The record is a 168-nucleotide RNA from Paenibacillus radicis, which matches "c-di-AMP riboswitch aptamer (ydaO/yuaA leader)" in Rfam. The literature on the family includes a 2004 paper in Proc Natl Acad Sci U S A by Barrick et al., "New RNA motifs suggest an expanded scope for riboswitches in bacterial genetic control". Its family is annotated with regulation of gene expression and cyclic-di-AMP binding in the Gene Ontology. The organism belongs to Paenibacillus, within Bacteria. Rfam describes the family as follows. This family represents a conserved RNA structure found upstream of the ydaO and yuaA genes in Bacillus subtilis and related genes in other bacteria.

RNA sequence: AUAAAAAGCUUGCCUAAUUCCUUGUACUGGAAACGGGGGAACCACUCUGGGUGAAUUGAUUUCGACGUCUGCACCGGCAUCGCCGGGUAAGAACGGACGCCUGAGAAAUCAUAGGGAUCCUUCAACCGAACCCCACAGCUAACCUCGUCGGCAUCGGAAGGGGCUUUA
Numbered sequence: 001a002u003a004a005a006a007a008g009c010u011u012g013c014c015u016a017a018u019u020c021c022u023u024g025u026a027c028u029g030g031a032a033a034c035g036g037g038g039g040a041a042c043c044a045c046u047c048u049g050g051g052u053g054a055a056u057u058g059a060u061u062u063c064g065a066c067g068u069c070u071g072c073a074c075c076g077g078c079a080u081c082g083c084c085g086g087g088u089a090a091g092a093a094c095g096g097a098c099g100c101c102u103g104a105g106a107a108a109u110c111a112u113a114g115g116g117a118u119c120c121u122u123c124a125a126c127c128g129a130a131c132c133c134c135a136c137a138g139c140u141a142a143c144c145u146c147g148u149c150g151g152c153a154u155c156g157g158a159a160g161g162g163g164c165u166u167u168a
Stems, first nucleotide, its partner, number of pairs: 011153004018032003033148006049133003057111007114127002